This 97-nucleotide RNA sequence from Erwinia mallotivora belongs to the Rfam family "Tryptophan operon leader". Gene Ontology terms of the family: tryptophan biosynthetic process and transcriptional attenuation by ribosome. The family's consensus secondary structure is taken from published work.
[Rfam]
RNA sequence: ACAGGCUGGUGGCGCACUUUUCCCUGAACGGGCGAAGGAUGGAUGCACGCAACCAGCGAAAUGCAGAUACCCGGCCCGCACCAGCGGGCUUUUUUUU
Numbered sequence: 001a002c003a004g005g006c007u008g009g010u011g012g013c014g015c016a017c018u019u020u021u022c023c024c025u026g027a028a029c030g031g032g033c034g035a036a037g038g039a040u041g042g043a044u045g046c047a048c049g050c051a052a053c054c055a056g057c058g059a060a061a062u063g064c065a066g067a068u069a070c071c072c073g074g075c076c077c078g079c080a081c082c083a084g085c086g087g088g089c090u091u092u093u094u095u096u097u
Base pairs, nucleotide, nucleotide: 009048010047011046015041016040018038020036021035022034073090074089075088076087077086078085079084